RNA: ybhL leader
RNA sequence: CAGGCAUGCUGGAGCCCCGCAGCGGCGCCUGGGCGCGCAAAGGAACGACAAGGUUCGCCGCCCGACACCGUAACUUCAACCGGGGCUUAA
Numbered sequence: 001c002a003g004g005c006a007u008g009c010u011g012g013a014g015c016c017c018c019g020c021a022g023c024g025g026c027g028c029c030u031g032g033g034c035g036c037g038c039a040a041a042g043g044a045a046c047g048a049c050a051a052g053g054u055u056c057g058c059c060g061c062c063c064g065a066c067a068c069c070g071u072a073a074c075u076u077c078a079a080c081c082g083g084g085g086c087u088u089a090a
Base pairs, nucleotide, nucleotide: 012088013087014086015085016084017083018082019081023070024069025068030064031063032062033061036057